[Rfam]
Shown here is a 67-nucleotide RNA sequence from Mucilaginibacter ginkgonis, a member of the family "Fluoride riboswitch aptamer (crcB RNA motif)".

RNA sequence: AUCACGCAAGGCAAUGGUGUCCUGCCUAAUUGAACCGCUGUAAAAAGCUGAUGGCGCCUACUCAGAU
Numbered sequence: 001a002u003c004a005c006g007c008a009a010g011g012c013a014a015u016g017g018u019g020u021c022c023u024g025c026c027u028a029a030u031u032g033a034a035c036c037g038c039u040g041u042a043a044a045a046a047g048c049u050g051a052u053g054g055c056g057c058c059u060a061c062u063c064a065g066a067u
Stems, first nucleotide, its partner, number of pairs: 010026004016058006037048003
Lineage of the source: Bacteria > Bacteroidota > Sphingobacteriales > Sphingobacteriaceae > Mucilaginibacter. A search with the family's covariance model found it, with a score of 50 bits. The base pairs follow the family's consensus structure, which is taken from published work.